[Rfam]
RNA sequence: CGACCUCUGUUCAGGUGAGAUUACCCCCUGAAUUUAAGCAUAUUAAUGAGGGGAGGAAAAGAAACUAACAAGGAUUCCCUUAGUAGCGGCGAGCGAAACGGGAAGAGCCCAGCGCUGAAUCCUGCGUGAGCAACCCUCGCGUUGGGAAAUGUAGCGUUAAGGAGUGUCCGUUAACACGGCGUCUGACACUGGAUAAGUCCAACUGGAAAGGGGCCACAAAGAGGGUGACAUGCCCGUUCUCCUUGCCACGUCGGAUGUCGUGUGGGCAUCUCCUCAGAGUCGGUCUGCUUGAAAGUGCAGACUUAAGUGGGUGGUAGAUUCCAUCUAAGGCUAAAUACAACCACAUGACCGAUAGCGCACAAGUACCAUGAGGGAAAGGUGAAAAGAACUUUGAAAAGAGAGUUCAAGAGUACGUGAAACUGAGCUGAUCUAAA
Numbered sequence: 001c002g003a004c005c006u007c008u009g010u011u012c013a014g015g016u017g018a019g020a021u022u023a024c025c026c027c028c029u030g031a032a033u034u035u036a037a038g039c040a041u042a043u044u045a046a047u048g049a050g051g052g053g054a055g056g057a058a059a060a061g062a063a064a065c066u067a068a069c070a071a072g073g074a075u076u077c078c079c080u081u082a083g084u085a086g087c088g089g090c091g092a093g094c095g096a097a098a099c100g101g102g103a104a105g106a107g108c109c110c111a112g113c114g115c116u117g118a119a120u121c122c123u124g125c126g127u128g129a130g131c132a133a134c135c136c137u138c139g140c141g142u143u144g145g146g147a148a149a150u151g152u153a154g155c156g157u158u159a160a161g162g163a164g165u166g167u168c169c170g171u172u173a174a175c176a177c178g179g180c181g182u183c184u185g186a187c188a189c190u191g192g193a194u195a196a197g198u199c200c201a202a203c204u205g206g207a208a209a210g211g212g213g214c215c216a217c218a219a220a221g222a223g224g225g226u227g228a229c230a231u232g233c234c235c236g237u238u239c240u241c242c243u244u245g246c247c248a249c250g251u252c253g254g255a256u257g258u259c260g261u262g263u264g265g266g267c268a269u270c271u272c273c274u275c276a277g278a279g280u281c282g283g284u285c286u287g288c289u290u291g292a293a294a295g296u297g298c299a300g301a302c303u304u305a306a307g308u309g310g311g312u313g314g315u316a317g318a319u320u321c322c323a324u325c326u327a328a329g330g331c332u333a334a335a336u337a338c339a340a341c342c343a344c345a346u347g348a349c350c351g352a353u354a355g356c357g358c359a360c361a362a363g364u365a366c367c368a369u370g371a372g373g374g375a376a377a378g379g380u381g382a383a384a385a386g387a388a389c390u391u392u393g394a395a396a397a398g399a400g401a402g403u404u405c406a407a408g409a410g411u412a413c414g415u416g417a418a419a420c421u422g423a424g425c426u427g428a429u430c431u432a433a434a
Stems, first nucleotide, its partner, number of pairs: 024055001025053005035042002065072002076103004086094002106332004113156005119150001120147004124140003128136001161273002164269003168266002182255006191242003197214001199213002203210001217221001224234002282303007309326005366373002389400004
The family of this 434-nucleotide part of an RNA from Oryza brachyantha is "Eukaryotic large subunit ribosomal RNA". The source organism's lineage runs through Eukaryota, Viridiplantae, Mesangiospermae, commelinids and Oryza. It is one of the family's seed sequences.